RNA sequence: CUUUGCCGGCAGACGUGCAGGGAUGCAGAGCAGGAAAUUUAGCUCUGCAUCCCUAUGCAUGUCUGCCGGCAAAG
Dot-bracket structure: ..(((((((((((((((((((((((((((((..........)))))))))).)).)))))))))))))))))..
Numbered sequence: 001c002u003u004u005g006c007c008g009g010c011a012g013a014c015g016u017g018c019a020g021g022g023a024u025g026c027a028g029a030g031c032a033g034g035a036a037a038u039u040u041a042g043c044u045c046u047g048c049a050u051c052c053c054u055a056u057g058c059a060u061g062u063c064u065g066c067c068g069g070c071a072a073a074g
Stems, first nucleotide, its partner, number of pairs: 003072017020054002022051010